[Rfam]
RNA: Small nucleolar RNA snoR97
RNA sequence: AUGUAAUUAGUGGGUUUAGGGUCUGAAAAACUCAGAAAAUUAGUGCUGUUUAUCAGCUUCUUCUCUUGAAUAAUUCAACGAGAUGGAGUUAAAUCAUGGCACUAAAUGU
Numbered sequence: 001a002u003g004u005a006a007u008u009a010g011u012g013g014g015u016u017u018a019g020g021g022u023c024u025g026a027a028a029a030a031c032u033c034a035g036a037a038a039a040u041u042a043g044u045g046c047u048g049u050u051u052a053u054c055a056g057c058u059u060c061u062u063c064u065c066u067u068g069a070a071u072a073a074u075u076c077a078a079c080g081a082g083a084u085g086g087a088g089u090u091a092a093a094u095c096a097u098g099g100c101a102c103u104a105a106a107u108g109u
Base pairs, nucleotide, nucleotide: 042103043102044101045100046099047098048097055090056089057088058087059086060085062083063082064081065080